This 512-nucleotide RNA from Streptomyces sp. ICC1 belongs to the Rfam family "Saccharopolyspora sRNA 350". The literature on the family includes a 2013 paper in PLoS One by Liu et al., "Prediction and characterization of small non-coding RNAs related to secondary metabolites in Saccharopolyspora erythraea". The family's RNA type in Rfam is antisense RNA. Pairs were carried over by alignment from the consensus structure, which was predicted with RNAfold. The source organism's lineage runs through Bacteria, Actinomycetota, Actinomycetes, Kitasatosporales and Streptomyces. Rfam links the family to the GO term regulation of secondary metabolite biosynthetic process. It scores 128 bits against the family's covariance model.

RNA sequence: GUCGCGGUGUAGUCCCAGGCGGCAUCGGCGUCCAGCAGGGCGUUCUCGCCGAACCGGUCGCCGUCGGCGAGGGUGGCGACGGUGACGUCGUCGCCGUACUUGCCGAUCGAGGUCUGGCUGAUCCGGCCGUGGGCGAUGAGGUGGAUCUGCUCGGCGGGGGCGCCGCGCUGGACCAGCACCUCGCCGGCACGGAAGUCGCGCUGGGCGCACCGGCCGGCGAUCGCCGCCAGCACCUCCUCGUCGUCGAAGCCGUGCAGCAGGGCCAGUUCGCCGAGCUCGCGGGGGAUCACCCGGACGUGGGCGCCGUCCUGGACGAACUCGAUGCGCCCGUCGCCGACCGUGUAGCUCAGCCGGCGGUUCACCCGGUAGGCGCCGCCCUUGGUCUCCACCCAGGGGAGCAUCCGCAGCAGCCAGCGGGAGGUGAUCUCCUGCAUCUGGGGGGCGGACUUGGUCGUGGUGGCGAGGUUGCGGGCAGCCGACGUGCCGAGGCUGGACUGCUGAGGAGGAUCCAG
Numbered sequence: 001g002u003c004g005c006g007g008u009g010u011a012g013u014c015c016c017a018g019g020c021g022g023c024a025u026c027g028g029c030g031u032c033c034a035g036c037a038g039g040g041c042g043u044u045c046u047c048g049c050c051g052a053a054c055c056g057g058u059c060g061c062c063g064u065c066g067g068c069g070a071g072g073g074u075g076g077c078g079a080c081g082g083u084g085a086c087g088u089c090g091u092c093g094c095c096g097u098a099c100u101u102g103c104c105g106a107u108c109g110a111g112g113u114c115u116g117g118c119u120g121a122u123c124c125g126g127c128c129g130u131g132g133g134c135g136a137u138g139a140g141g142u143g144g145a146u147c148u149g150c151u152c153g154g155c156g157g158g159g160g161c162g163c164c165g166c167g168c169u170g171g172a173c174c175a176g177c178a179c180c181u182c183g184c185c186g187g188c189a190c191g192g193a194a195g196u197c198g199c200g201c202u203g204g205g206c207g208c209a210c211c212g213g214c215c216g217g218c219g220a221u222c223g224c225c226g227c228c229a230g231c232a233c234c235u236c237c238u239c240g241u242c243g244u245c246g247a248a249g250c251c252g253u254g255c256a257g258c259a260g261g262g263c264c265a266g267u268u269c270g271c272c273g274a275g276c277u278c279g280c281g282g283g284g285g286a287u288c289a290c291c292c293g294g295a296c297g298u299g300g301g302c303g304c305c306g307u308c309c310u311g312g313a314c315g316a317a318c319u320c321g322a323u324g325c326g327c328c329c330g331u332c333g334c335c336g337a338c339c340g341u342g343u344a345g346c347u348c349a350g351c352c353g354g355c356g357g358u359u360c361a362c363c364c365g366g367u368a369g370g371c372g373c374c375g376c377c378c379u380u381g382g383u384c385u386c387c388a389c390c391c392a393g394g395g396g397a398g399c400a401u402c403c404g405c406a407g408c409a410g411c412c413a414g415c416g417g418g419a420g421g422u423g424a425u426c427u428c429c430u431g432c433a434u435c436u437g438g439g440g441g442g443c444g445g446a447c448u449u450g451g452u453c454g455u456g457g458u459g460g461c462g463a464g465g466u467u468g469c470g471g472g473c474a475g476c477c478g479a480c481g482u483g484c485c486g487a488g489g490c491u492g493g494a495c496u497g498c499u500g501a502g503g504a505g506g507a508u509c510c511a512g
Stems, first nucleotide, its partner, number of pairs: 006390004011385002014382002018328002021325001025322004031316002036312001038310003047303004052298001058229001060227002063224002065105004072097001074096004079091005111222004122217002127212001129210002131206001134203002138199001140197001143196001150191001153188001155186003159182001160177002166171001235295003240290002243287003250282005256277003260271001262269001329342003353377005360372001362370002391431007399423003403418001405416001407415001437476001440473001443470002446467001447465003451461002478510001480506001482504001484502001487499002